[Rfam]
RNA sequence: UGACGGAAGGACACCACAAGGAGUGGAGUGUGCGGGUUAAUUUGACUCAACGCGGGACAACUUACCAGGGUAUGUGACAUUGAGCGAAGAGCAUGGAUGCGAUCUGUGUUCUGAUGAUGUUACGUGUGGUGCAUGGCCGUUCUUAACACGUGGGGUGACCUGUCUGGUUAAAUCCGAUAACGCGUGAGACCCUGGAUAAUGACGAUACUUGACAAGAGUAGGGAAGCUCGGGUCGAUAACAGGUCUGUGAUGCCCAUAGAUAUUUUGGGCGCCACGCGCACUACAUUGGGGAUGGUUACGUGAAACGGAACAUCCUUUCGGUUGGGAUUGACGUUUGUAAAUACGUCAUGAACUCGGAAUUCCUAGUAAUUUGUUGUCAUUAACGACAUAUGAAUAUGUCCCUGUUCUUUGUACACACCGCCCGUCGUUAUCUAAGAUGAAUGUGCGGAUGAAGUUGGUUAGGUCAAAAGAAUCCGUGCGAUUAGAUUGGAUACAAGUCGUAACAAGGUUACUGUAGGAGAACCUGCAGUAGGAUCAAUA
Numbered sequence: 001u002g003a004c005g006g007a008a009g010g011a012c013a014c015c016a017c018a019a020g021g022a023g024u025g026g027a028g029u030g031u032g033c034g035g036g037u038u039a040a041u042u043u044g045a046c047u048c049a050a051c052g053c054g055g056g057a058c059a060a061c062u063u064a065c066c067a068g069g070g071u072a073u074g075u076g077a078c079a080u081u082g083a084g085c086g087a088a089g090a091g092c093a094u095g096g097a098u099g100c101g102a103u104c105u106g107u108g109u110u111c112u113g114a115u116g117a118u119g120u121u122a123c124g125u126g127u128g129g130u131g132c133a134u135g136g137c138c139g140u141u142c143u144u145a146a147c148a149c150g151u152g153g154g155g156u157g158a159c160c161u162g163u164c165u166g167g168u169u170a171a172a173u174c175c176g177a178u179a180a181c182g183c184g185u186g187a188g189a190c191c192c193u194g195g196a197u198a199a200u201g202a203c204g205a206u207a208c209u210u211g212a213c214a215a216g217a218g219u220a221g222g223g224a225a226g227c228u229c230g231g232g233u234c235g236a237u238a239a240c241a242g243g244u245c246u247g248u249g250a251u252g253c254c255c256a257u258a259g260a261u262a263u264u265u266u267g268g269g270c271g272c273c274a275c276g277c278g279c280a281c282u283a284c285a286u287u288g289g290g291g292a293u294g295g296u297u298a299c300g301u302g303a304a305a306c307g308g309a310a311c312a313u314c315c316u317u318u319c320g321g322u323u324g325g326g327a328u329u330g331a332c333g334u335u336u337g338u339a340a341a342u343a344c345g346u347c348a349u350g351a352a353c354u355c356g357g358a359a360u361u362c363c364u365a366g367u368a369a370u371u372u373g374u375u376g377u378c379a380u381u382a383a384c385g386a387c388a389u390a391u392g393a394a395u396a397u398g399u400c401c402c403u404g405u406u407c408u409u410u411g412u413a414c415a416c417a418c419c420g421c422c423c424g425u426c427g428u429u430a431u432c433u434a435a436g437a438u439g440a441a442u443g444u445g446c447g448g449a450u451g452a453a454g455u456u457g458g459u460u461a462g463g464u465c466a467a468a469a470g471a472a473u474c475c476g477u478g479c480g481a482u483u484a485g486a487u488u489g490g491a492u493a494c495a496a497g498u499c500g501u502a503a504c505a506a507g508g509u510u511a512c513u514g515u516a517g518g519a520g521a522a523c524c525u526g527c528a529g530u531a532g533g534a535u536c537a538a539u540a
Base pairs, nucleotide, nucleotide: 001415002414003412004411005410007409008408009407010406011405012404013403016399017398020363021362022361023360024359025284027282028281029280030279031278032277033276034275035273036272041056042055043054044053065268066267067266068265069264070263071262076121077120078119079118080117081116088112089111090110091109092108093107094106095105096104097103098102125256126255128254129253130252131251134250135248136244137243138242139240140239141238146185147184149182150181151180152161153160154159165176166175167174191232192231193230194229196200203223206220207219208218209217210216288317289316290315291314292313293312324353329348330347331346332345333344334343369391370390372388373387374386375385376384420504423500424499426497429493430492431491432490433489434488435487438484439483440482442480443479444478445477446476447475448474449473450472455467456466457465509532510531511530512529513528514527515526516525517524518523
Microsporidia small subunit ribosomal RNA: a 540-nucleotide part of an RNA from Gurleya vavrai.
Clan: SSU clan.
Lineage of the source: Eukaryota > Opisthokonta > Fungi > Gurleyidae > Gurleya.
The family has 46 seed sequences and 1,035 matches in Rfam 15.1.
It is one of the family's seed sequences.